The family of this 139-nucleotide RNA from Carpinus fangiana is "Small nucleolar RNA Z247". It is annotated as a C/D-box small nucleolar RNA. The source organism's lineage runs through Eukaryota, Streptophyta, Magnoliopsida, eudicotyledons and Carpinus. For this family Rfam cites "The high diversity of snoRNAs in plants: identification and comparative study of 120 snoRNA genes from Oryza sativa" (Chen et al., Nucleic Acids Res, 2003). Rfam 15.1 lists 7,071 matches to the family in 142 species.

RNA sequence: CCAAUCAAGGACUCCGAGUUGUUGUCCUAUAUUCUUGGUGGUUUAGGAAUGGAAUAUGAAUCUUUGGUAACUUCUAUUUCCACCCGCAUUGAACCUGUUUUACUUGAUGAUCUAUAUAGCCAUUUGCUCAUCCAUGAGC
Numbered sequence: 001c002c003a004a005u006c007a008a009g010g011a012c013u014c015c016g017a018g019u020u021g022u023u024g025u026c027c028u029a030u031a032u033u034c035u036u037g038g039u040g041g042u043u044u045a046g047g048a049a050u051g052g053a054a055u056a057u058g059a060a061u062c063u064u065u066g067g068u069a070a071c072u073u074c075u076a077u078u079u080c081c082a083c084c085c086g087c088a089u090u091g092a093a094c095c096u097g098u099u100u101u102a103c104u105u106g107a108u109g110a111u112c113u114a115u116a117u118a119g120c121c122a123u124u125u126g127c128u129c130a131u132c133c134a135u136g137a138g139c
Stems, first nucleotide, its partner, number of pairs: 005137003088108005